The record is a 93-nucleotide sequence from Sporomusaceae bacterium FL31, which matches "pan motif" in Rfam.

RNA sequence: UGGAUGAUAUUUGAAAAAAAUCAUACUGCCGAUUAUCAAGCUGCAAAAUGAACUUUAUUUCUGCUUAGAUCUUUAAAGGACUGAGACGGACGC
Dot-bracket structure: ((((((((.((......))))))).)))................................((((((((.(((.....)))))))).)))....
The family's RNA type in Rfam is cis-regulatory element. Taxonomically the source falls in Sporomusaceae (Bacteria, Bacillati, Bacillota, Selenomonadales). Pairs were carried over by alignment from the consensus structure, which is taken from published work.